RNA sequence: AUGGGAGAGGUUCAUAGCAUCACCCUCUUAAAAAAACUAUGGCUUU
Numbered sequence: 001a002u003g004g005g006a007g008a009g010g011u012u013c014a015u016a017g018c019a020u021c022a023c024c025c026u027c028u029u030a031a032a033a034a035a036a037c038u039a040u041g042g043c044u045u046u
Base pairs, nucleotide, nucleotide: 006028007027008026009025010024015039016038
The record is a 46-nucleotide RNA sequence from Peribacillus muralis, which matches "PreQ1 (pre queuosine) riboswitch aptamer" in Rfam.
The literature on the family includes a 2004 paper in J Biol Chem by Reader et al., "Identification of four genes necessary for biosynthesis of the modified nucleoside queuosine".
Pairs were carried over by alignment from the consensus structure.